[Rfam]
This 262-nucleotide part of an RNA from Hydrogenivirga sp. 128-5-R1-1 belongs to the Rfam family "Bacterial large subunit ribosomal RNA". Its family is annotated with structural constituent of ribosome and ribosome in the Gene Ontology.
RNA sequence: GGACGCUUGAGAGGAGUCAUCCCUAGUACGAGAGGACCGGGGUGAGGCAGGCUCUGGUGUACCAGUUGUCCUCCAAGGGCAGCGCUGGGUAGCUAUCCUGCUAUGGGAUAAGCGCUGAAAGCAUCUAAGCGUGAAGCCCACCUCAAGAUAAGGCGUCCCGCACCUUAUGGUGCCUGAAGGGCCGUGGGAGACUACCACGUUGAUAGGCCACAGGUGGAAGCCCGGCAACGGGUGCAGCCGAGUGGUACUAAUCGCCCGUGAG
Numbered sequence: 001g002g003a004c005g006c007u008u009g010a011g012a013g014g015a016g017u018c019a020u021c022c023c024u025a026g027u028a029c030g031a032g033a034g035g036a037c038c039g040g041g042g043u044g045a046g047g048c049a050g051g052c053u054c055u056g057g058u059g060u061a062c063c064a065g066u067u068g069u070c071c072u073c074c075a076a077g078g079g080c081a082g083c084g085c086u087g088g089g090u091a092g093c094u095a096u097c098c099u100g101c102u103a104u105g106g107g108a109u110a111a112g113c114g115c116u117g118a119a120a121g122c123a124u125c126u127a128a129g130c131g132u133g134a135a136g137c138c139c140a141c142c143u144c145a146a147g148a149u150a151a152g153g154c155g156u157c158c159c160g161c162a163c164c165u166u167a168u169g170g171u172g173c174c175u176g177a178a179g180g181g182c183c184g185u186g187g188g189a190g191a192c193u194a195c196c197a198c199g200u201u202g203a204u205a206g207g208c209c210a211c212a213g214g215u216g217g218a219a220g221c222c223c224g225g226c227a228a229c230g231g232g233u234g235c236a237g238c239c240g241a242g243u244g245g246u247a248c249u250a251a252u253c254g255c256c257c258g259u260g261a262g
Base pairs, nucleotide, nucleotide: 001158002157003156004155005154006153007152008151011144012143013142014141017045018044019043020042021041022040023039046102047101048100049099050098051097055095056094057093062088063087064086065085066084067081068080069079070078071077072076105139106138107137112132113131114130115129116128161172162171163170176259179257180256181255182254183199184198185197186196187195204250205249206248207246208245209244210243211242213239214238220233221232222231223230224229